[Rfam]
Description
Nuclear RNase P: a 305-nucleotide RNA sequence from Strongylocentrotus purpuratus. The family's RNA type in Rfam is ribozyme. The match comes from Rfam's covariance-model search (140 bits). Clan: RNaseP clan.
RNA sequence: UGGAGGGGAUACUUACACAUGGGGUAACAUACAGGUAUCUGAUUACCUACAUGACCCCAGGGAAGGUCUGAGAGAGGGGCAUUUACAUCCGAGAGGGGUGCCCCUGGAAACAGGGGGUGGUGUAACAGAAAACCUUGGACCUUACACGGUGCUUUCUUUCGGGCAGAAGACACUGUGUUGAAACAUGCACAGUGGAUGCUCAACGUGCCGGUGUAUUGGUUGGAAUACAUCACGCUAGCAACCUUGAGUACAAUGUGUGAGGCUGCCAAGGCAGUAACUCAAUUCAGACUACACUCUCCUCCCCA
Numbered sequence: 001u002g003g004a005g006g007g008g009a010u011a012c013u014u015a016c017a018c019a020u021g022g023g024g025u026a027a028c029a030u031a032c033a034g035g036u037a038u039c040u041g042a043u044u045a046c047c048u049a050c051a052u053g054a055c056c057c058c059a060g061g062g063a064a065g066g067u068c069u070g071a072g073a074g075a076g077g078g079g080c081a082u083u084u085a086c087a088u089c090c091g092a093g094a095g096g097g098g099u100g101c102c103c104c105u106g107g108a109a110a111c112a113g114g115g116g117g118u119g120g121u122g123u124a125a126c127a128g129a130a131a132a133c134c135u136u137g138g139a140c141c142u143u144a145c146a147c148g149g150u151g152c153u154u155u156c157u158u159u160c161g162g163g164c165a166g167a168a169g170a171c172a173c174u175g176u177g178u179u180g181a182a183a184c185a186u187g188c189a190c191a192g193u194g195g196a197u198g199c200u201c202a203a204c205g206u207g208c209c210g211g212u213g214u215a216u217u218g219g220u221u222g223g224a225a226u227a228c229a230u231c232a233c234g235c236u237a238g239c240a241a242c243c244u245u246g247a248g249u250a251c252a253a254u255g256u257g258u259g260a261g262g263c264u265g266c267c268a269a270g271g272c273a274g275u276a277a278c279u280c281a282a283u284u285c286a287g288a289c290u291a292c293a294c295u296c297u298c299c300u301c302c303c304c305a
Stems, first nucleotide, its partner, number of pairs: 001305003007299003012261007020059005033048005068287005078236003086100005101116006117233007141219002262275005